[Rfam]
RNA sequence: GUCAACAACCCACCGUUAAUCGGAGUACCGAUGUAACGGGGGCUUGAAAUAUAGCCUAAGUUGACCAGACUAAGUAUCUAGUAUACUACGUUAUUUUUGUCACGACACCUUGCGGAUGCGAAGCUAGUCCCCUGCUCUGUCAUUAGUAAUUAAACAUCUUUAAAGGGUUAAGGAAGUGUUACUAAUUUAAAAAGCUUAAAUAACAUUGUCGAAGCUAACUUUAC
Numbered sequence: 001g002u003c004a005a006c007a008a009c010c011c012a013c014c015g016u017u018a019a020u021c022g023g024a025g026u027a028c029c030g031a032u033g034u035a036a037c038g039g040g041g042g043c044u045u046g047a048a049a050u051a052u053a054g055c056c057u058a059a060g061u062u063g064a065c066c067a068g069a070c071u072a073a074g075u076a077u078c079u080a081g082u083a084u085a086c087u088a089c090g091u092u093a094u095u096u097u098u099g100u101c102a103c104g105a106c107a108c109c110u111u112g113c114g115g116a117u118g119c120g121a122a123g124c125u126a127g128u129c130c131c132c133u134g135c136u137c138u139g140u141c142a143u144u145a146g147u148a149a150u151u152a153a154a155c156a157u158c159u160u161u162a163a164a165g166g167g168u169u170a171a172g173g174a175a176g177u178g179u180u181a182c183u184a185a186u187u188u189a190a191a192a193a194g195c196u197u198a199a200a201u202a203a204c205a206u207u208g209u210c211g212a213a214g215c216u217a218a219c220u221u222u223a224c
Base pairs, nucleotide, nucleotide: 001065002064003063004062005061006060010042011041013039014038017035043054044053068210069209070208072206073087074086075085076084077083090204091203092202093201094200095199096198099195100194105140106139109134112131114130115129116128117127118220122216123215124214125213142186143185144184145183146182147181148180149179150178154177155176157174158173159172160171161170162169163168
The record is a 224-nucleotide RNA from Aphanothece sacrum, which matches "HNH endonuclease-associated RNA and ORF (HEARO) RNA" in Rfam. Lineage of the source: Bacteria > Bacillati > Oscillatoriophycideae > Aphanothecaceae > Aphanothece sacrum. For this family Rfam cites "Exceptional structured noncoding RNAs revealed by bacterial metagenome analysis" (Weinberg et al., Nature, 2009). Rfam classes the family as a non-coding RNA gene. The family's consensus secondary structure is taken from published work. A search with the family's covariance model found it, with a score of 149 bits. The family has 139 seed sequences and 952 matches in Rfam 15.1.